[Rfam]
RNA sequence: CGCCAGGGCCAAUUGGGGUUCCUGAAGGGCCAAUCGGGGUCAGGAUG
Numbered sequence: 001c002g003c004c005a006g007g008g009c010c011a012a013u014u015g016g017g018g019u020u021c022c023u024g025a026a027g028g029g030c031c032a033a034u035c036g037g038g039g040u041c042a043g044g045a046u047g
Stems, first nucleotide, its partner, number of pairs: 004024003007020004028041004
Shown here is a 47-nucleotide RNA, a member of the family "gut-2 RNA".
Rfam classes the family as a small RNA.
The sequence is in the family's curated seed alignment.